[Rfam]
RNA sequence: AUGAUGUUGAUGACGGAAGAACACCGUGUCGGGAUAAUCUACGGCGUCCGGUCUUCAAGAGACAUCAUCUUACUGUGAAUUAGUCCUAGAGAAAUCUAAAUAACCUCGAGAGGCGGGGUCGGAUGAGACAGUAAUGAAACUCCUAGACGUGGGCGAGCCUAACCAAAGGAGUCAGUCGAAAACUCGUUGUUGAAGUAGCGUAAACUCCCUGAUACAAACUCCCUGAUUCAAAGUAAUGUAUCAAAGUAAUACGAGAGGUGGCGAGUAUAAAUAAAUUUCCUGUUAUGCAGUGGAUUGUAACCGAAAUGAUACGAGUAGGCCACAUGGGAAGAUGAAACAUCUCUGGUCUUGUAGAGAUAGCAUAUUGAGCUACAAGAUGACACCGAAAGGUGU
Number, nucleotide and partner (000 for none) at each position: 001a068002u067003g066004a065005u064006g063007u062008u061009g000010a000011u000012g000013a000014c000015g000016g056017a055018a054019g000020a000021a000022c000023a052024c051025c050026g049027u000028g045029u044030c043031g042032g000033g000034a000035u000036a000037a000038u000039c000040u000041a000042c031043g030044g029045c028046g000047u000048c000049c026050g025051g024052u023053c000054u018055u017056c016057a000058a000059g000060a000061g008062a007063c006064a005065u004066c003067a002068u001069c000070u134071u133072a132073c131074u130075g129076u128077g000078a000079a000080u000081u000082a000083g124084u123085c122086c121087u000088a000089g096090a095091g000092a000093a000094a000095u090096c089097u000098a000099a000100a000101u000102a000103a000104c118105c117106u116107c115108g114109a000110g000111a000112g000113g000114c108115g107116g106117g105118g104119u000120c000121g086122g085123a084124u083125g000126a000127g000128a076129c075130a074131g073132u072133a071134a070135u000136g000137a000138a000139a000140c171141u170142c169143c168144u167145a000146g000147a000148c000149g000150u161151g160152g159153g158154c000155g000156a000157g000158c153159c152160u151161a150162a000163c000164c000165a000166a000167a144168g143169g142170a141171g140172u000173c000174a000175g000176u000177c000178g000179a000180a000181a000182a266183c265184u264185c263186g262187u000188u000189g000190u000191u000192g000193a000194a000195g000196u000197a000198g000199c000200g000201u000202a000203a000204a247205c246206u245207c000208c000209c000210u243211g242212a241213u240214a239215c238216a000217a000218a000219c000220u000221c000222c000223c000224u000225g000226a000227u000228u000229c000230a000231a000232a000233g000234u000235a000236a000237u000238g215239u214240a213241u212242c211243a210244a000245a206246g205247u204248a000249a000250u000251a000252c000253g000254a000255g343256a342257g341258g340259u339260g338261g000262c186263g185264a184265g183266u182267a000268u000269a000270a000271a000272u000273a000274a000275a000276u000277u329278u328279c327280c326281u000282g000283u000284u000285a000286u000287g000288c000289a000290g323291u322292g321293g320294a000295u000296u000297g000298u000299a000300a000301c319302c318303g000304a000305a000306a000307u000308g000309a000310u000311a000312c000313g000314a000315g000316u000317a000318g302319g301320c293321c292322a291323c290324a000325u000326g280327g279328g278329a277330a000331g000332a000333u000334g000335a000336a000337a000338c260339a259340u258341c257342u256343c255344u000345g000346g378347u377348c376349u375350u374351g373352u372353a371354g370355a000356g000357a000358u000359a000360g000361c000362a000363u000364a000365u000366u000367g000368a000369g000370c354371u353372a352373c351374a350375a349376g348377a347378u346379g000380a393381c392382a391383c390384c389385g000386a000387a000388a000389g384390g383391u382392g381393u380

About this RNA
This 393-nucleotide RNA belongs to the Rfam family "HOLDH RNA". The family's consensus secondary structure is taken from published work. Environmental (human tongue dorsum, human supragingival plaque).